This 114-nucleotide sequence from Amphiprion ocellaris belongs to the Rfam family "Potassium channel RNA editing signal".
NCBI's taxonomy places the organism under Eukaryota, Neopterygii, Clupeocephala, Ovalentaria, Amphiprion.
Gene Ontology term of the family: adenosine to inosine editing.

RNA sequence: UUCAGGUACGGCGACAUGGUUCCAAAGACUAUCAUGGGGAAGAUCUUCGGUUCCAUCUGUUCUCUGAGUGGGGUUCUGGUCAUCGCCCUGCCGGUUCCCGUCAUCGUCUCCAAC
Numbered sequence: 001u002u003c004a005g006g007u008a009c010g011g012c013g014a015c016a017u018g019g020u021u022c023c024a025a026a027g028a029c030u031a032u033c034a035u036g037g038g039g040a041a042g043a044u045c046u047u048c049g050g051u052u053c054c055a056u057c058u059g060u061u062c063u064c065u066g067a068g069u070g071g072g073g074u075u076c077u078g079g080u081c082a083u084c085g086c087c088c089u090g091c092c093g094g095u096u097c098c099c100g101u102c103a104u105c106g107u108c109u110c111c112a113a114c
Stems, first nucleotide, its partner, number of pairs: 002113001005110001008107004013102003018097002021094001037077004049063002